A member of the RNA family "BsrC" from Tepidibacillus sp. HK-1, 86 nucleotides long. About the family: The 301 nucleotide sequence from Kouji Nakamura has been trimmed to a highly conserved ~85 nucleotide long core to form this family. A search with the family's covariance model found it, with a score of 67 bits. By type it is a small RNA.
[Rfam]
Nucleotides: 086
Base pairs, nucleotide, nucleotide: 034065035064038061039060042055043054044053045052046051
Number, partner (000 for none) and nucleotide at each position: 001000u002000a003000a004000a005000c006000u007000u008000a009000a010000a011000c012000g013000a014000c015000g016000u017000u018000a019000g020000c021000c022000c023000u024000g025000c026000c027000u028000c029000u030000c031000a032000a033000a034065c035064a036000u037000c038061c039060u040000u041000a042055c043054g044053g045052c046051u047000c048000u049000u050000u051046a052045g053044c054043c055042g056000a057000u058000c059000c060039a061038g062000u063000g064035u065034g066000a067000a068000u069000a070000a071000g072000u073000c074000u075000c076000u077000a078000u079000g080000a081000a082000a083000a084000a085000u086000u